[Rfam]
RNA sequence: GGCAUCGAAUUGAUGAAUCGGCAGGAGCGGGAGACCCAAGCGGUACGGAUCACGAAGUCGGUGGUCCUUGGGGUGAAGCCGGGAAAUCCGGCCGGGCAACUUCGCAGCCCGAACCCGACAGGUCAUCUUUCGUAGGCGGAUGUCGAAGGGCUU
Numbered sequence: 001g002g003c004a005u006c007g008a009a010u011u012g013a014u015g016a017a018u019c020g021g022c023a024g025g026a027g028c029g030g031g032a033g034a035c036c037c038a039a040g041c042g043g044u045a046c047g048g049a050u051c052a053c054g055a056a057g058u059c060g061g062u063g064g065u066c067c068u069u070g071g072g073g074u075g076a077a078g079c080c081g082g083g084a085a086a087u088c089c090g091g092c093c094g095g096g097c098a099a100c101u102u103c104g105c106a107g108c109c110c111g112a113a114c115c116c117g118a119c120a121g122g123u124c125a126u127c128u129u130u131c132g133u134a135g136g137c138g139g140a141u142g143u144c145g146a147a148g149g150g151c152u153u
Base pairs, nucleotide, nucleotide: 003138005136006135010026011025027133028132029131030130031127032126037070038069039068040067071116072115073114079091080090081089082088094110095109096108097107